Background:
The record is a 68-nucleotide RNA, which matches "DUF805 RNA" in Rfam. The family's consensus secondary structure is taken from published work. The family's RNA type in Rfam is cis-regulatory element.

RNA sequence: UAAGAGUGGAGUCCAGAUCCCACUAUAAAAACGGGGCGUCACCGAAAAGCCAAAUGAGUAGGUAUUAA
Numbered sequence: 001u002a003a004g005a006g007u008g009g010a011g012u013c014c015a016g017a018u019c020c021c022a023c024u025a026u027a028a029a030a031a032c033g034g035g036g037c038g039u040c041a042c043c044g045a046a047a048a049g050c051c052a053a054a055u056g057a058g059u060a061g062g063u064a065u066u067a068a
Base pairs, nucleotide, nucleotide: 006023007022008021009020035051036050037049042062043061